Rfam assigns this 188-nucleotide RNA sequence from Halalkalibacter suaedae to the family "Lysine riboswitch aptamer".
Gene Ontology term of the family: lysine biosynthetic process.
A search with the family's covariance model found it, with a score of 122 bits.
Taxonomically the source falls in Halalkalibacter (Bacteria, Bacillati, Caryophanales, Bacillaceae).
[Rfam]
RNA sequence: AGUGAUGGUAGAGGCGCGAAAACCAACAGUAUACUCUUUGAGGUAGAUGAGAAACCGACGACAAGAGUGGAAAGGGGAAUUCGCCGAAGUGUUAAGACGUCUCAUACGUCCUGAUGCUGGACCUAUGUUUAAGAAGCAUAGGGCUGUCACAUCCGUUACCCAAAUGGAUGUGGAGAACUAUCUCACGA
Numbered sequence: 001a002g003u004g005a006u007g008g009u010a011g012a013g014g015c016g017c018g019a020a021a022a023c024c025a026a027c028a029g030u031a032u033a034c035u036c037u038u039u040g041a042g043g044u045a046g047a048u049g050a051g052a053a054a055c056c057g058a059c060g061a062c063a064a065g066a067g068u069g070g071a072a073a074g075g076g077g078a079a080u081u082c083g084c085c086g087a088a089g090u091g092u093u094a095a096g097a098c099g100u101c102u103c104a105u106a107c108g109u110c111c112u113g114a115u116g117c118u119g120g121a122c123c124u125a126u127g128u129u130u131a132a133g134a135a136g137c138a139u140a141g142g143g144c145u146g147u148c149a150c151a152u153c154c155g156u157u158a159c160c161c162a163a164a165u166g167g168a169u170g171u172g173g174a175g176a177a178c179u180a181u182c183u184c185a186c187g188a
Stems, first nucleotide, its partner, number of pairs: 007182005016084005023077002032069007088118007096110004119145002122142008147173010